[Rfam]
RNA: IS605-orfB-I RNA
RNA sequence: ACUUUAUAAAUAUGUAUUAAACGCAAGACAGUUUAGCAUAUCCCUUUAAGGUGAAUUAAAGCUAGAAACAUAAAUCGAACUCUUGUUGUGUGGCUAUUAAGUUGAAACAAGAGAUGCUUAUGUGGAAUAGGUUAACCGUAAGACCUUAAGUUAAGAAACUUUAAAAUUGAGCUUAGUAGUUUUAGAAUUAUUAAGUUGCGGUUGC
Numbered sequence: 001a002c003u004u005u006a007u008a009a010a011u012a013u014g015u016a017u018u019a020a021a022c023g024c025a026a027g028a029c030a031g032u033u034u035a036g037c038a039u040a041u042c043c044c045u046u047u048a049a050g051g052u053g054a055a056u057u058a059a060a061g062c063u064a065g066a067a068a069c070a071u072a073a074a075u076c077g078a079a080c081u082c083u084u085g086u087u088g089u090g091u092g093g094c095u096a097u098u099a100a101g102u103u104g105a106a107a108c109a110a111g112a113g114a115u116g117c118u119u120a121u122g123u124g125g126a127a128u129a130g131g132u133u134a135a136c137c138g139u140a141a142g143a144c145c146u147u148a149a150g151u152u153a154a155g156a157a158a159c160u161u162u163a164a165a166a167u168u169g170a171g172c173u174u175a176g177u178a179g180u181u182u183u184a185g186a187a188u189u190a191u192u193a194a195g196u197u198g199c200g201g202u203u204g205c
Base pairs, nucleotide, nucleotide: 001052002051003050004049005048006047008045010041011040012039013038014037015036018035019034020033021032022031023029068123069122070121071120072119073118075116081112082111083110084109085108086107087106092103093102095100129146130145131144132143133142135202136201137200138199139198140197141167148161149160150159151158152157172195173194174193175192176191177190178189179188180187181186